RNA: RNase E 5' UTR element
RNA sequence: CUUCCCGUGAAGAUGAAUAAAACGCCGGAAAUUGUGUGUUUGCAAGAUGUCACAAAGCGCAGCAAUGGCGUAAGACGCGAUGUGAAAUCAAGCAAUUAGCGGGCUGCGGGUAGCAGUCUGGCCGGUAAUAUGGGAUCGGGAGUGCCGCCUUUUUUCGCGACAAUAUCCUGAUAAAGAGCGCUGCUUUUCACAAAGAAACGCGGGCUCACCGAAAUAAUGCGCCCCUAUGCAGGCGACAACCGUGAGGUUGACGACUUUGCGAUAAGACUCGGGGCCGUCGGUUUUCCCUCCCGCCCAGAACGUUAUUCUGCCCGCAGCUUAGUGACCAA
Numbered sequence: 001c002u003u004c005c006c007g008u009g010a011a012g013a014u015g016a017a018u019a020a021a022a023c024g025c026c027g028g029a030a031a032u033u034g035u036g037u038g039u040u041u042g043c044a045a046g047a048u049g050u051c052a053c054a055a056a057g058c059g060c061a062g063c064a065a066u067g068g069c070g071u072a073a074g075a076c077g078c079g080a081u082g083u084g085a086a087a088u089c090a091a092g093c094a095a096u097u098a099g100c101g102g103g104c105u106g107c108g109g110g111u112a113g114c115a116g117u118c119u120g121g122c123c124g125g126u127a128a129u130a131u132g133g134g135a136u137c138g139g140g141a142g143u144g145c146c147g148c149c150u151u152u153u154u155u156c157g158c159g160a161c162a163a164u165a166u167c168c169u170g171a172u173a174a175a176g177a178g179c180g181c182u183g184c185u186u187u188u189c190a191c192a193a194a195g196a197a198a199c200g201c202g203g204g205c206u207c208a209c210c211g212a213a214a215u216a217a218u219g220c221g222c223c224c225c226u227a228u229g230c231a232g233g234c235g236a237c238a239a240c241c242g243u244g245a246g247g248u249u250g251a252c253g254a255c256u257u258u259g260c261g262a263u264a265a266g267a268c269u270c271g272g273g274g275c276c277g278u279c280g281g282u283u284u285u286c287c288c289u290c291c292c293g294c295c296c297a298g299a300a301c302g303u304u305a306u307u308c309u310g311c312c313c314g315c316a317g318c319u320u321a322g323u324g325a326c327c328a329a
Stems, first nucleotide, its partner, number of pairs: 003030001005028003014020001040095004046089002051084004057078003062069002101320011119297003123293003132169005143159003177206003181203004186198004208282005221275005234253002237250005
Dot-bracket structure: ..(.(((......(.....).....))).).........((((..((...((((..(((..((....))......)))..))))...))..)))).....(((((((((((.......(((.(((......(((((......(((...........))).....))))).......(((.((((.((((.....)))).))))))).(((((........(((((........((.(((((....))))).)).................)))))..)))))........))).)))............))))))))))).........